[Rfam]
RNA sequence: GGAGAAGUACUCAAGUGGCUGAAGAGGCGCCCCUGCUAAGGGUGUAGGUCGUGUAAGCGGCGCGAGGGUUCAAAUCCCUCCUUCUCCG
Numbered sequence: 001g002g003a004g005a006a007g008u009a010c011u012c013a014a015g016u017g018g019c020u021g022a023a024g025a026g027g028c029g030c031c032c033c034u035g036c037u038a039a040g041g042g043u044g045u046a047g048g049u050c051g052u053g054u055a056a057g058c059g060g061c062g063c064g065a066g067g068g069u070u071c072a073a074a075u076c077c078c079u080c081c082u083u084c085u086c087c088g
Stems, first nucleotide, its partner, number of pairs: 001087007010026003028044005064080005
tRNA: an 88-nucleotide sequence from Bacillus subtilis. The sequence is in the family's curated seed alignment. Rfam classes the family as a transfer RNA. NCBI's taxonomy places the organism under Bacteria, Bacilli, Caryophanales, Bacillaceae, Bacillus. The family's consensus secondary structure is taken from published work. Its Rfam clan is "tRNA clan".